[Rfam]
RNA sequence: UUAGUGGACGCUUUAGCUAUUGAACUGUUCUGUCACCUUCUGAUAGAGAACAAUUUGUCCUUUAACAGAGAGGGACAAAACAGUUCAAUGGCUAAAGCAUCCACUAAC
Numbered sequence: 001u002u003a004g005u006g007g008a009c010g011c012u013u014u015a016g017c018u019a020u021u022g023a024a025c026u027g028u029u030c031u032g033u034c035a036c037c038u039u040c041u042g043a044u045a046g047a048g049a050a051c052a053a054u055u056u057g058u059c060c061u062u063u064a065a066c067a068g069a070g071a072g073g074g075a076c077a078a079a080a081c082a083g084u085u086c087a088a089u090g091g092c093u094a095a096a097g098c099a100u101c102c103a104c105u106a107a108c
Base pairs, nucleotide, nucleotide: 001107002106003105004104005103006102011097012096013095014094015093016092017091018090019089020088021087022086023085024084025083026082027081028080029069030068031067032066033065035063050058051057052056
The record is a 108-nucleotide sequence from Plutella xylostella, which matches "mir-8517 microRNA precursor family" in Rfam. Gene Ontology terms of the family: miRNA-mediated post-transcriptional gene silencing and RISC complex. The family's consensus secondary structure was predicted with RNAalifold. A search with the family's covariance model found it, with a score of 113 bits.